[Rfam]
RNA sequence: GGAAAGAGAACGACACCGGUGUGUCGGCCGGGCUUCAAACCCGGUGGGUGGCGCCACGCGCCGCCGGGUGGGUUCGACUCCCACCUCUUUCC
Numbered sequence: 001g002g003a004a005a006g007a008g009a010a011c012g013a014c015a016c017c018g019g020u021g022u023g024u025c026g027g028c029c030g031g032g033c034u035u036c037a038a039a040c041c042c043g044g045u046g047g048g049u050g051g052c053g054c055c056a057c058g059c060g061c062c063g064c065c066g067g068g069u070g071g072g073u074u075c076g077a078c079u080c081c082c083a084c085c086u087c088u089u090u091c092c
Base pairs, nucleotide, nucleotide: 001092002091003090004089005088006087007086008085011026012025013024014023015022016021027045028044029043030042031041032040047065048064049063050062051061069083070082071081072080
Notes
Selenocysteine transfer RNA: a 92-nucleotide RNA from Roseateles saccharophilus. The family's consensus secondary structure is taken from published work.